[Rfam]
RNA sequence: UAGGUGGUAUCGUAUGAGCCGCACUAUACUUUCAACUUUUUUUUACAAGUACUGCUUUCAGCGUUUUGCGAGAGACAGCAUA
Numbered sequence: 001u002a003g004g005u006g007g008u009a010u011c012g013u014a015u016g017a018g019c020c021g022c023a024c025u026a027u028a029c030u031u032u033c034a035a036c037u038u039u040u041u042u043u044u045a046c047a048a049g050u051a052c053u054g055c056u057u058u059c060a061g062c063g064u065u066u067u068g069c070g071a072g073a074g075a076c077a078g079c080a081u082a
Base pairs, nucleotide, nucleotide: 001026002025003024004022005021006020007019008018010017011016052078053077054076055074056073057072058071059070061069062068
RNA: pan motif